[Rfam]
RNA sequence: UCCUUCAGUGUUGAGACAAUCUCUACUGAAUCAGCUUUAAACAAGUUCACUAGAGUUUGUUUCAAUAUUGCAAGAA
Numbered sequence: 001u002c003c004u005u006c007a008g009u010g011u012u013g014a015g016a017c018a019a020u021c022u023c024u025a026c027u028g029a030a031u032c033a034g035c036u037u038u039a040a041a042c043a044a045g046u047u048c049a050c051u052a053g054a055g056u057u058u059g060u061u062u063c064a065a066u067a068u069u070g071c072a073a074g075a076a
Base pairs, nucleotide, nucleotide: 003074004073005072006070007069008068009067010066011065012064013063014062015061016060017059018058019057021055022054023053024052025051027049028048029047030046031045
Shown here is a 76-nucleotide RNA from Callithrix jacchus, a member of the family "mir-653 microRNA precursor family".
The literature on the family includes a 2010 paper in BMC Genomics by Linsen et al., "Small RNA expression and strain specificity in the rat".